RNA sequence: UAAGUUGGUCGCUUUAUCGCGUUUUACGCGUUUUAUUAAAUGAGGAAAGUCCGUACAUCAGAGAGCAACACAAAUGGGUAAUUCCCUUCCCCUGCAAAGUGAGGACUAGUGCAACAGAAAGAAAGUACAGUUUGGCUGUAGUGAAAUCAGGGAAACUCUGUGCGAUGAAAUGCCGUGUAUACCGACGUUAAAGAUCUGCUCGAUUGUAGUUGGGGGGUAGGCAGUUUGAGAUAGAUGGGAACAUUUAUCCGAGAUAAAUGAUAAAGGUUCCUCUAAAAAAAAGGGGUAUACAGAAUACGGCUUACAGGCCAACUUUUUCA
Numbered sequence: 001u002a003a004g005u006u007g008g009u010c011g012c013u014u015u016a017u018c019g020c021g022u023u024u025u026a027c028g029c030g031u032u033u034u035a036u037u038a039a040a041u042g043a044g045g046a047a048a049g050u051c052c053g054u055a056c057a058u059c060a061g062a063g064a065g066c067a068a069c070a071c072a073a074a075u076g077g078g079u080a081a082u083u084c085c086c087u088u089c090c091c092c093u094g095c096a097a098a099g100u101g102a103g104g105a106c107u108a109g110u111g112c113a114a115c116a117g118a119a120a121g122a123a124a125g126u127a128c129a130g131u132u133u134g135g136c137u138g139u140a141g142u143g144a145a146a147u148c149a150g151g152g153a154a155a156c157u158c159u160g161u162g163c164g165a166u167g168a169a170a171u172g173c174c175g176u177g178u179a180u181a182c183c184g185a186c187g188u189u190a191a192a193g194a195u196c197u198g199c200u201c202g203a204u205u206g207u208a209g210u211u212g213g214g215g216g217g218u219a220g221g222c223a224g225u226u227u228g229a230g231a232u233a234g235a236u237g238g239g240a241a242c243a244u245u246u247a248u249c250c251g252a253g254a255u256a257a258a259u260g261a262u263a264a265a266g267g268u269u270c271c272u273c274u275a276a277a278a279a280a281a282a283g284g285g286g287u288a289u290a291c292a293g294a295a296u297a298c299g300g301c302u303u304a305c306a307g308g309c310c311a312a313c314u315u316u317u318u319c320a
Stems, first nucleotide, its partner, number of pairs: 002315009011305001012266007020042005026036001028034001047303003051300005056167004063201004069162004074088001076086003089103001090101001092099002104158002109156002112151001126140006171223004182213005193205004230249008